Background:
A member of the RNA family "U11 spliceosomal RNA" from Myotis davidii, 134 nucleotides long. By type it is a spliceosomal small nuclear RNA. The family has 72 seed sequences and 2,595 matches in Rfam 15.1. Pairs were carried over by alignment from the consensus structure, which is taken from published work. The match comes from Rfam's covariance-model search (105 bits).

[Rfam]
RNA sequence: CAAAAGGGCUUCUGUCAUGAGUGGCACACGUAGGGCAGCUUGAUUGCUUUAUGUGUGGAAUUGACAUCAAGAGAUUUUGGAAGCAUAAUUUUUUGGGAGCUGGGUGGCUGGUAAUCAUCGGUCCUGGUGCCCAU
Numbered sequence: 001c002a003a004a005a006g007g008g009c010u011u012c013u014g015u016c017a018u019g020a021g022u023g024g025c026a027c028a029c030g031u032a033g034g035g036c037a038g039c040u041u042g043a044u045u046g047c048u049u050u051a052u053g054u055g056u057g058g059a060a061u062u063g064a065c066a067u068c069a070a071g072a073g074a075u076u077u078u079g080g081a082a083g084c085a086u087a088a089u090u091u092u093u094u095g096g097g098a099g100c101u102g103g104g105u106g107g108c109u110g111g112u113a114a115u116c117a118u119c120g121g122u123c124c125u126g127g128u129g130c131c132c133a134u
Base pairs, nucleotide, nucleotide: 008084009083010082011081012080013026014025015024016023017022027055028054029053030052031051032050033049034048035047036046037045038044056079057078058077059076060075061074062073102132103131104130105129107128108127109126110125111124114122115121116120